[Rfam]
Rfam assigns this 86-nucleotide RNA from Lonepinella koalarum to the family "t44 RNA".
Rfam's curators write: This family consists of a number of bacterial RNA genes of between 135 and 170 bases in length.
The literature on the family includes a 2002 paper in Nucleic Acids Res by Tjaden et al., "Transcriptome analysis of Escherichia coli using high-density oligonucleotide probe arrays".
RNA sequence: UAUUUUUUAUUAACAAUACACACACAUAUUAUAUAGGUAAAUCGGGGUGCCAAACGGUCGGUUUGCUGAAUAUGUGGAGGCUCAAC
Numbered sequence: 001u002a003u004u005u006u007u008u009a010u011u012a013a014c015a016a017u018a019c020a021c022a023c024a025c026a027u028a029u030u031a032u033a034u035a036g037g038u039a040a041a042u043c044g045g046g047g048u049g050c051c052a053a054a055c056g057g058u059c060g061g062u063u064u065g066c067u068g069a070a071u072a073u074g075u076g077g078a079g080g081c082u083c084a085a086c
Stems, first nucleotide, its partner, number of pairs: 023076008036067009049058003